Description: Rfam assigns this 358-nucleotide RNA from Kolteria novifilia to the family "Bacterial RNase P class A". It is annotated as a ribozyme. About the family: Ribonuclease P (RNase P) is a ubiquitous endoribonuclease, found in archaea, bacteria and eukarya as well as chloroplasts and mitochondria. Taxonomically the source falls in Kolteria (Bacteria, Pseudomonadati, Kolteriales, Kolteriaceae). A search with the family's covariance model found it, with a score of 314 bits. The base pairs follow the family's consensus structure, which is taken from published work.
RNA sequence: GGAGUCGGCUAGACGGUCGCUCGUCCGCUUCGGCGGGCGGGAGGAAAGUCCGGGCUCCACAGGACACGGUGGUGGGUAACGCCCACCGUCCGCGAGGACAGGGAAAGUGCCACAGAAAACAAACCGCCCCAACGUUUCGGCGGAAGGGUAAGGGUGAAAAGGUGCGGUAAGAGCGCACCGCGGUCCAGGUGACUGGACUGGCAGGGUAAACCCCACCGGGAGCAAGGCCAAAUAUGGGAGCAGGACUCGUCCGGUCCGCGAUCGACUCCCGGGUAGGCCGCGUCGACGUCGUCGGCAACGGCGACGCCAGAGAAAUGACCGUCCACGACAGAACCCGGCUUAUCGGCCGGCUUCCCUU
Dot-bracket structure: ((((((((((((((((((.(((((((((....)))))))))....[[[.[[[[[((((...[[.[.((((((((((.....)))))(((((....)))).)((...(((((............((((((...((......))...))))..)).......((((((.......))))))(((((((((....)))))))).)..)))..)))))))))))))...((((......(((((......((((..].]].))))....))))).....)))).......((((((((....))))))))..........)))))))..........]]]]]]]].).))))))))))....
Numbered sequence: 001g002g003a004g005u006c007g008g009c010u011a012g013a014c015g016g017u018c019g020c021u022c023g024u025c026c027g028c029u030u031c032g033g034c035g036g037g038c039g040g041g042a043g044g045a046a047a048g049u050c051c052g053g054g055c056u057c058c059a060c061a062g063g064a065c066a067c068g069g070u071g072g073u074g075g076g077u078a079a080c081g082c083c084c085a086c087c088g089u090c091c092g093c094g095a096g097g098a099c100a101g102g103g104a105a106a107g108u109g110c111c112a113c114a115g116a117a118a119a120c121a122a123a124c125c126g127c128c129c130c131a132a133c134g135u136u137u138c139g140g141c142g143g144a145a146g147g148g149u150a151a152g153g154g155u156g157a158a159a160a161g162g163u164g165c166g167g168u169a170a171g172a173g174c175g176c177a178c179c180g181c182g183g184u185c186c187a188g189g190u191g192a193c194u195g196g197a198c199u200g201g202c203a204g205g206g207u208a209a210a211c212c213c214c215a216c217c218g219g220g221a222g223c224a225a226g227g228c229c230a231a232a233u234a235u236g237g238g239a240g241c242a243g244g245a246c247u248c249g250u251c252c253g254g255u256c257c258g259c260g261a262u263c264g265a266c267u268c269c270c271g272g273g274u275a276g277g278c279c280g281c282g283u284c285g286a287c288g289u290c291g292u293c294g295g296c297a298a299c300g301g302c303g304a305c306g307c308c309a310g311a312g313a314a315a316u317g318a319c320c321g322u323c324c325a326c327g328a329c330a331g332a333a334c335c336c337g338g339c340u341u342a343u344c345g346g347c348c349g350g351c352u353u354c355c356c357u358u
Stems, first nucleotide, its partner, number of pairs: 001354010011343001012323007020041009046341003050338005055222004062256002065253001067218005072086005087101001088099004102213002107211002109207003124153002126149004133142002161179006180202001181200008226279004236270005247261004287306008